Rfam assigns this 179-nucleotide RNA sequence from Portunus trituberculatus to the family "U2 spliceosomal RNA".
[Rfam]
RNA sequence: UUUUGGCUAAGAUCAAAGUGUAGUAUCUGUUCUUAUCAGCUUAAUAUCUGAUACGAUCCCCAUGUGGGAUCUACGAUAUUAAUCUGAUUUUUGAAUUAUGGCGAAGUGCUAGGGGCUUGCUCCACCUUUGCCGCGGAUCGGCCCGGUAUUGCAGUAAUUCCGGGAUCGGUCCACUCCCU
Number, nucleotide and partner (000 for none) at each position: 001u000002u000003u000004u000005g000006g000007c000008u000009a000010a000011g000012a000013u000014c000015a000016a000017a000018g000019u000020g000021u000022a000023g000024u000025a000026u000027c000028u000029g000030u000031u000032c000033u000034u053035a052036u051037c050038a049039g048040c000041u000042u000043a000044a000045u000046a000047u000048c039049u038050g037051a036052u035053a034054c000055g071056a070057u069058c068059c067060c066061c000062a000063u000064g000065u000066g060067g059068g058069a057070u056071c055072u000073a000074c000075g000076a000077u000078a000079u000080u000081a000082a000083u000084c000085u000086g000087a000088u000089u000090u000091u000092u000093g000094a000095a000096u000097u000098a000099u000100g132101g131102c130103g129104a128105a127106g126107u000108g000109c000110u000111a000112g123113g122114g121115g120116c000117u000118u000119g000120c115121u114122c113123c112124a000125c000126c106127u105128u104129u103130g102131c101132c100133g000134c000135g172136g171137a170138u169139c168140g167141g000142c164143c163144c162145g161146g160147u000148a000149u000150u000151g000152c000153a000154g000155u000156a000157a000158u000159u000160c146161c145162g144163g143164g142165a000166u000167c140168g139169g138170u137171c136172c135173a000174c000175u000176c000177c000178c000179u000

Pairs were carried over by alignment from the consensus structure, which is taken from published work.